MIR6152 microRNA precursor family: a 95-nucleotide RNA from Nicotiana sylvestris.
It scores 77 bits against the family's covariance model.
[Rfam]
RNA sequence: UGUAUUUGAUUGUACUCGAUUGUAUUCACGGCGUGAAAUAGGGGAUUACACUGUUUUUAAACGGAAAGUGAAUCAAUUAACACAAAUAGACUCCU
Numbered sequence: 001u002g003u004a005u006u007u008g009a010u011u012g013u014a015c016u017c018g019a020u021u022g023u024a025u026u027c028a029c030g031g032c033g034u035g036a037a038a039u040a041g042g043g044g045a046u047u048a049c050a051c052u053g054u055u056u057u058u059a060a061a062c063g064g065a066a067a068g069u070g071a072a073u074c075a076a077u078u079a080a081c082a083c084a085a086a087u088a089g090a091c092u093c094c095u
Stems, first nucleotide, its partner, number of pairs: 002092001007089001009087002011084003016079001018078002021075002024073006032063003035057007